[Rfam]
RNA sequence: ACGACCUUACUUGAACAGGAUCUGUUCUAUAGGCUCGUACCACUGUAUCCUUGAUUUCUAAGGAGACAGGAAACCAAGUCUGGUUGAUGAAACAUGGCCAUGUGACCAGAGCGUGAUUAACAGCCAACAAUGGCUCCUCGAGCUGUGGUUGCAGUAGAUGAUCGUUCUUAGACCUGAUCUCAGGCCUAAGAUGGUCUUAUGGCUGUCUGACAGACU
Numbered sequence: 001a002c003g004a005c006c007u008u009a010c011u012u013g014a015a016c017a018g019g020a021u022c023u024g025u026u027c028u029a030u031a032g033g034c035u036c037g038u039a040c041c042a043c044u045g046u047a048u049c050c051u052u053g054a055u056u057u058c059u060a061a062g063g064a065g066a067c068a069g070g071a072a073a074c075c076a077a078g079u080c081u082g083g084u085u086g087a088u089g090a091a092a093c094a095u096g097g098c099c100a101u102g103u104g105a106c107c108a109g110a111g112c113g114u115g116a117u118u119a120a121c122a123g124c125c126a127a128c129a130a131u132g133g134c135u136c137c138u139c140g141a142g143c144u145g146u147g148g149u150u151g152c153a154g155u156a157g158a159u160g161a162u163c164g165u166u167c168u169u170a171g172a173c174c175u176g177a178u179c180u181c182a183g184g185c186c187u188a189a190g191a192u193g194g195u196c197u198u199a200u201g202g203c204u205g206u207c208u209g210a211c212a213g214a215c216u
Stems, first nucleotide, its partner, number of pairs: 001038002003035001005033003013027006043069004048064006078215005097203006104196005110166004120155002123152002126149001128147001130146007168189004173184004
This 216-nucleotide RNA from Solanum commersonii belongs to the Rfam family "Plant small nucleolar RNA U3". Pairs were carried over by alignment from the consensus structure, which is taken from published work. Small nucleolar RNAs (snoRNAs) are involved in the processing and modification of rRNA in the nucleolus. There are two main classes of snoRNAs: the box C/D class, and the box H/ACA class. U3 snoRNA is a member of the box C/D class. Indeed, the box C/D element is a subset of the six short sequence elements found in all U3 snoRNAs, namely boxes A, A', B, C, C', and D. The U3 snoRNA secondary structure is characterised by a small 5' domain (with boxes A and A'), and a larger 3' domain (with boxes B, C, C', and D), the two domains being linked by a single-stranded hinge. On this family, see Marz and Stadler, RNA Biol 2010: "Comparative analysis of eukaryotic U3 snoRNA". Gene Ontology terms of the family: nucleolus and RNA processing.